[Rfam]
RNA sequence: UUGACUUUGCUGCUUUUUCGCUCUACUUUGAAGGGCAAAGGGUAAGGGAGGAUUGCUCCUCCCCCUGGUGUCUUAGUAAGCUGCGAAACUUAUCACUAAGAGUAUCACCAGUAUGAUGACGAGCUUCAUCAUAUCCCUUUUCCUUCUU
Numbered sequence: 001u002u003g004a005c006u007u008u009g010c011u012g013c014u015u016u017u018u019c020g021c022u023c024u025a026c027u028u029u030g031a032a033g034g035g036c037a038a039a040g041g042g043u044a045a046g047g048g049a050g051g052a053u054u055g056c057u058c059c060u061c062c063c064c065c066u067g068g069u070g071u072c073u074u075a076g077u078a079a080g081c082u083g084c085g086a087a088a089c090u091u092a093u094c095a096c097u098a099a100g101a102g103u104a105u106c107a108c109c110a111g112u113a114u115g116a117u118g119a120c121g122a123g124c125u126u127c128a129u130c131a132u133a134u135c136c137c138u139u140u141u142c143c144u145u146c147u148u
Stems, first nucleotide, its partner, number of pairs: 032144004038139005046063003065111004112133007

The record is a 148-nucleotide RNA sequence from Pluralibacter gergoviae, which matches "Short Intergenic Abundant RNA" in Rfam. Pairs were carried over by alignment from the consensus structure, which was predicted with PFOLD. Gene Ontology term of the family: mRNA binding. It scores 136 bits against the family's covariance model. This family contains multiple ncRNA from E. coli that were identified in a large scale screen of E. coli, were they were called candidates 43,55 and 61. These RNAs have also been identified by other groups and called QUAD RNAs. The literature on the family includes a 2001 paper in Genes Dev by Wassarman et al., "Identification of novel small RNAs using comparative genomics and microarrays".